[Rfam]
This 137-nucleotide RNA from Polaribacter cellanae belongs to the Rfam family "SAM riboswitch aptamer (S box leader)".
Lineage of the source: Bacteria > Pseudomonadati > Bacteroidota > Flavobacteriaceae > Polaribacter.
RNA sequence: ACGUUAUCACGAAAGGCAGAGGGAUUAGACCCAUUGAAGCCUUGGCAACCCUUUGCAAAGCAAAUGCUGAAUUUAUUUCAGCAUCUUUUUAAAAGAAGGUGCUACAUUCUACAAGCUUUAGGCUUGAAAGAUAACAG
Numbered sequence: 001a002c003g004u005u006a007u008c009a010c011g012a013a014a015g016g017c018a019g020a021g022g023g024a025u026u027a028g029a030c031c032c033a034u035u036g037a038a039g040c041c042u043u044g045g046c047a048a049c050c051c052u053u054u055g056c057a058a059a060g061c062a063a064a065u066g067c068u069g070a071a072u073u074u075a076u077u078u079c080a081g082c083a084u085c086u087u088u089u090u091a092a093a094a095g096a097a098g099g100u101g102c103u104a105c106a107u108u109c110u111a112c113a114a115g116c117u118u119u120a121g122g123c124u125u126g127a128a129a130g131a132u133a134a135c136a137g
Stems, first nucleotide, its partner, number of pairs: 003135006013043005021032003026111004044103004049099002051095004107129001112126006